[Rfam]
RNA sequence: UUGCGCCUGCGGCGGAUUAAGCAGCGGCCUUGUUAUGACUUUGCAGGCAGCCGGCUUCUGUUCAAAUCCCGUAUAAUUAAGCAUAGCUUAAUUUUCAAAGCUUUU
Numbered sequence: 001u002u003g004c005g006c007c008u009g010c011g012g013c014g015g016a017u018u019a020a021g022c023a024g025c026g027g028c029c030u031u032g033u034u035a036u037g038a039c040u041u042u043g044c045a046g047g048c049a050g051c052c053g054g055c056u057u058c059u060g061u062u063c064a065a066a067u068c069c070c071g072u073a074u075a076a077u078u079a080a081g082c083a084u085a086g087c088u089u090a091a092u093u094u095u096c097a098a099a100g101c102u103u104u105u
Stems, first nucleotide, its partner, number of pairs: 005048007014069002017066002021061004026055001028054002037052001039050002077091006
A member of the RNA family "RT-5 RNA", 105 nucleotides long. The family's RNA type in Rfam is small RNA. Pairs were carried over by alignment from the consensus structure, which is taken from published work.